[Rfam]
RNA sequence: AGCCGCGUGGUGAGCACAGAGCGAACUAUUCUUUCGCCUUUUACUAAAGAAUACCGUGUGCUCGCCACUUGAAGCGGCAUACGCCAAUUUUUAUGGGGCUCCUGCUCUAGUAAGAGC
Numbered sequence: 001a002g003c004c005g006c007g008u009g010g011u012g013a014g015c016a017c018a019g020a021g022c023g024a025a026c027u028a029u030u031c032u033u034u035c036g037c038c039u040u041u042u043a044c045u046a047a048a049g050a051a052u053a054c055c056g057u058g059u060g061c062u063c064g065c066c067a068c069u070u071g072a073a074g075c076g077g078c079a080u081a082c083g084c085c086a087a088u089u090u091u092u093a094u095g096g097g098g099c100u101c102c103u104g105c106u107c108u109a110g111u112a113a114g115a116g117c
Stems, first nucleotide, its partner, number of pairs: 003077004008067011027053008100116001102114002
U5 spliceosomal RNA: a 117-nucleotide sequence from Colocasia esculenta. Rfam describes the family as follows. U5 RNA is a component of both types of known spliceosome. By type it is a spliceosomal small nuclear RNA. A search with the family's covariance model found it, with a score of 90 bits.